[Rfam]
Shown here is an 85-nucleotide sequence from Pieris macdunnoughi, a member of the family "mir-67 microRNA precursor family".
RNA sequence: AGUUCCAUUCACUCACUCAACCUGGGUGUGAUGUUUGCAUUCGUGCCAGCCCCAUCACAACCUCCUUGAGUGAGCGAUUGUGCCU
Numbered sequence: 001a002g003u004u005c006c007a008u009u010c011a012c013u014c015a016c017u018c019a020a021c022c023u024g025g026g027u028g029u030g031a032u033g034u035u036u037g038c039a040u041u042c043g044u045g046c047c048a049g050c051c052c053c054a055u056c057a058c059a060a061c062c063u064c065c066u067u068g069a070g071u072g073a074g075c076g077a078u079u080g081u082g083c084c085u
Base pairs, nucleotide, nucleotide: 008077009076012074013073014072015071016070017069018068019067020066024062025061027059028058029057030056031055032054033053
The match comes from Rfam's covariance-model search (73 bits). The organism belongs to Pieris, within Eukaryota.